[Rfam]
RNA sequence: AAAGAUUUGCAGGGGAACUAAUUUAGUUGAGAAGGAUAAAACCUGACCCUUAGAACCUGUCAGUUAAUACUGUCGUAGGGAGCCAAAACAUAUAGCUU
Numbered sequence: 001a002a003a004g005a006u007u008u009g010c011a012g013g014g015g016a017a018c019u020a021a022u023u024u025a026g027u028u029g030a031g032a033a034g035g036a037u038a039a040a041a042c043c044u045g046a047c048c049c050u051u052a053g054a055a056c057c058u059g060u061c062a063g064u065u066a067a068u069a070c071u072g073u074c075g076u077a078g079g080g081a082g083c084c085a086a087a088a089c090a091u092a093u094a095g096c097u098u
Base pairs, nucleotide, nucleotide: 006086007085009083010082011050012049013048014047016044017027018026019025020024034043035042056079057078058077059076061072062071063070
About this RNA
The record is a 98-nucleotide sequence from Sedimentibacter sp. zth1, which matches "TPP riboswitch aptamer (THI element)" in Rfam. The source organism's lineage runs through Bacteria, Bacillati, Bacillota, Tissierellia and Sedimentibacter. Pairs were carried over by alignment from the consensus structure, which is taken from published work.